This 176-nucleotide RNA sequence from Corynebacterium efficiens belongs to the Rfam family "c-di-AMP riboswitch aptamer (ydaO/yuaA leader)".
[Rfam]
RNA sequence: CCCUCCCGGGGAUCGGAUGCAGAACACGAUGCGAGCCGGGGAACCACAGUGUUCCUGGGGUGAAUUCUCCAUGAGGGUCCGAUCAGUAGUCAACCGCGCUGAUCCGGAUGGAAUGGGGAUAGGGGCCUUCCGCUCCGAAUCCGACAGCUAACCCGGCAGACCAACAGGAAGAUUUG
Numbered sequence: 001c002c003c004u005c006c007c008g009g010g011g012a013u014c015g016g017a018u019g020c021a022g023a024a025c026a027c028g029a030u031g032c033g034a035g036c037c038g039g040g041g042a043a044c045c046a047c048a049g050u051g052u053u054c055c056u057g058g059g060g061u062g063a064a065u066u067c068u069c070c071a072u073g074a075g076g077g078u079c080c081g082a083u084c085a086g087u088a089g090u091c092a093a094c095c096g097c098g099c100u101g102a103u104c105c106g107g108a109u110g111g112a113a114u115g116g117g118g119a120u121a122g123g124g125g126c127c128u129u130c131c132g133c134u135c136c137g138a139a140u141c142c143g144a145c146a147g148c149u150a151a152c153c154c155g156g157c158a159g160a161c162c163a164a165c166a167g168g169a170a171g172a173u174u175u176g
Base pairs, nucleotide, nucleotide: 035157036156037155038154039153040152045057046056058142059141060140066119067118068117069116070115071114072113122136123135124134125133
Dot-bracket structure: ..................................((((((....((.........))(((.....(((((((........................................)))))))..((((.......))))...))).........))))))...................